UnaL2 LINE 3' element: a 54-nucleotide RNA sequence from Hucho hucho. A reference for the family is Baba et al. (2004), "Solution structure of an RNA stem-loop derived from the 3' conserved region of eel LINE UnaL2", RNA. Pairs were carried over by alignment from the consensus structure, which is taken from published work. The source organism's lineage runs through Eukaryota, Eumetazoa, Vertebrata, Euteleosteomorpha and Hucho.

[Rfam]
RNA sequence: UAUGCACAGUACUGUAAGUCACUCUGGAUAAGAGCAUCUGCUAAAUGACAAGAA
Numbered sequence: 001u002a003u004g005c006a007c008a009g010u011a012c013u014g015u016a017a018g019u020c021a022c023u024c025u026g027g028a029u030a031a032g033a034g035c036a037u038c039u040g041c042u043a044a045a046u047g048a049c050a051a052g053a054a
Stems, first nucleotide, its partner, number of pairs: 013043001014041003022034004